[Rfam]
RNA: c-di-AMP riboswitch aptamer (ydaO/yuaA leader)
Organism: Fimbriimonas ginsengisoli
RNA sequence: GAAAAACCUAGGCUUAAUGCCGCGAGAGCGGCAGCGGGGGACCCGUUAUCUGGGGUGAAUCUCGAGUGAUCGAGUAGGACGUUCUUGGUCCGAAUCCGACAGCUAACCUCGCCGGCCGAAUGCAAGAACGG
Dot-bracket structure: ..........((((...(((((......)))))((((((....((.....))(((.....((((......))))..((((.......))))...))).........)))))).))))..............